Burkholderia RNA 7 (anti-hemB): an 88-nucleotide RNA sequence from Parasulfuritortus cantonensis. The family has 26 seed sequences and 479 matches in Rfam 15.1. About the family: This RNA motif was identified by computational search in b-proteobacteria Burkholderia. The match comes from Rfam's covariance-model search (57 bits). By type it is a small RNA. NCBI's taxonomy places the organism under Bacteria, Pseudomonadati, Betaproteobacteria, Thiobacillaceae, Parasulfuritortus.
[Rfam]
RNA sequence: UCUCCCGCUUUCUCCCUGAGCGGGUGUCCCGGCGCAAAGCCGGGGCGCAGUUCGCCCGGUUCUCAUCCCCUUGAGCCGGGUUUUUUUU
Numbered sequence: 001u002c003u004c005c006c007g008c009u010u011u012c013u014c015c016c017u018g019a020g021c022g023g024g025u026g027u028c029c030c031g032g033c034g035c036a037a038a039g040c041c042g043g044g045g046c047g048c049a050g051u052u053c054g055c056c057c058g059g060u061u062c063u064c065a066u067c068c069c070c071u072u073g074a075g076c077c078g079g080g081u082u083u084u085u086u087u088u
Stems, first nucleotide, its partner, number of pairs: 004024006026046007055080008